A member of the RNA family "mir-144 microRNA precursor family" from Scleropages formosus, 79 nucleotides long. The base pairs follow the family's consensus structure, which was predicted with RNAalifold. The organism belongs to Scleropages, within Eukaryota. On this family, see Xu et al., FEBS Lett 2006: "Identification of microRNAs from different tissues of chicken embryo and adult chicken".
RNA sequence: GCCCUGGAAAGGAUAUCAUCAUAUACUGUAAGUUCAUUAUACAGACACUACAGUAUAGAUGAUGUACUAUCCAGAGUCU
Numbered sequence: 001g002c003c004c005u006g007g008a009a010a011g012g013a014u015a016u017c018a019u020c021a022u023a024u025a026c027u028g029u030a031a032g033u034u035c036a037u038u039a040u041a042c043a044g045a046c047a048c049u050a051c052a053g054u055a056u057a058g059a060u061g062a063u064g065u066a067c068u069a070u071c072c073a074g075a076g077u078c079u
Base pairs, nucleotide, nucleotide: 007071008070010068011067013065014064015063016062017061018060019059020058022057023056024055025054026053027052028051029050030049032046033045034044